[Rfam]
RNA: MIR5387 microRNA precursor family
Organism: Sorghum bicolor
RNA sequence: UUGUGGCCCGGGGCUAAAGGGUCCUGCCCAACGGCUACUGACAGGUGUUGUCGGGGCAGGGACCCUUUAGCACCGGUUCGUGUUACCAA
Dot-bracket structure: .(((((.((((.((((((((((.((.(((.((.....((...)).....)).)))...)).)))))))))).)))).))))).......